[Rfam]
RNA sequence: GGCUAGUCCAAGUGCAGUGGUGUUAACAAUGAUCACAGCCAGUGACAAAUUUCUUUGUUUCUUCUCCCACUCCUUCACUUGACUAGCCUCAA
Numbered sequence: 001g002g003c004u005a006g007u008c009c010a011a012g013u014g015c016a017g018u019g020g021u022g023u024u025a026a027c028a029a030u031g032a033u034c035a036c037a038g039c040c041a042g043u044g045a046c047a048a049a050u051u052u053c054u055u056u057g058u059u060u061c062u063u064c065u066c067c068c069a070c071u072c073c074u075u076c077a078c079u080u081g082a083c084u085a086g087c088c089u090c091a092a
Stems, first nucleotide, its partner, number of pairs: 001088008010080002014076001016071005022066001027057003031053002
Dot-bracket structure: ((((((((.((..(.(((((.(....(((.((...................)).)))........))))))....)..))))))))))....

Shown here is a 92-nucleotide RNA from Camelus dromedarius, a member of the family "Y RNA". About the family: Y RNAs are components of the Ro ribonucleoprotein particle (Ro RNP), in association with Ro60 and La proteins. The Y RNAs and Ro60 and La proteins are well conserved, but the function of the Ro RNP is not known. In humans the RNA component can be one of four small RNAs -- hY1, hY3, hY4 and hY5. These small RNAs are predicted to fold into a conserved secondary structure containing three stem structures. Rfam classes the family as a non-coding RNA gene.